[Rfam]
RNA sequence: AGUACACCUGUCCGCGGUUUCCUCCUCCCUCCGCCGACAGGUUCAGGCCGGUACCUCCUCCCACCGGCCUCCUAUAGGAAAAGACCGGGUUCCUCCCCCGGUCUUUUUCUUUU
Numbered sequence: 001a002g003u004a005c006a007c008c009u010g011u012c013c014g015c016g017g018u019u020u021c022c023u024c025c026u027c028c029c030u031c032c033g034c035c036g037a038c039a040g041g042u043u044c045a046g047g048c049c050g051g052u053a054c055c056u057c058c059u060c061c062c063a064c065c066g067g068c069c070u071c072c073u074a075u076a077g078g079a080a081a082a083g084a085c086c087g088g089g090u091u092c093c094u095c096c097c098c099c100g101g102u103c104u105u106u107u108u109c110u111u112u113u
Base pairs, nucleotide, nucleotide: 007041008040009039011037012036014034015033016032017031046069047068048067049066050065051064078108079107080106081105082104083103084102085101086100087099088098
Annotation: The record is a 113-nucleotide RNA sequence from Mesorhizobium sp. J18, which matches "Alphaproteobacterial ar14" in Rfam. For this family Rfam cites "A survey of sRNA families in alpha-proteobacteria" (del Val et al., RNA Biol, 2012). It scores 64 bits against the family's covariance model. Smr14C2 was renamed NfeR1 (Nodule Formation Efficiency RNA) highly expressed in salt stress and during the symbiotic interaction on legume roots. The source organism's lineage runs through Bacteria, Pseudomonadati, Alphaproteobacteria, Phyllobacteriaceae and Mesorhizobium.